[Rfam]
RNA: SAM (S-adenosyl methionine) riboswitch aptamer
Organism: Hamadaea sp.
RNA sequence: GGUCACGAGUGACGGCAUCAAGCCCCGGCUAGCCGUCCGGCAACCCUCCUAUCUGCGGUGGGGUGCCCCGGGUGAUGACCGGGCCUCGCUCGACGAGCGCGCGAGGCAAGCGCGGACC
Numbered sequence: 001g002g003u004c005a006c007g008a009g010u011g012a013c014g015g016c017a018u019c020a021a022g023c024c025c026c027g028g029c030u031a032g033c034c035g036u037c038c039g040g041c042a043a044c045c046c047u048c049c050u051a052u053c054u055g056c057g058g059u060g061g062g063g064u065g066c067c068c069c070g071g072g073u074g075a076u077g078a079c080c081g082g083g084c085c086u087c088g089c090u091c092g093a094c095g096a097g098c099g100c101g102c103g104a105g106g107c108a109a110g111c112g113c114g115g116a117c118c
Stems, first nucleotide, its partner, number of pairs: 001080004009038001011037006021030002039067003044063003048058002083107007091099002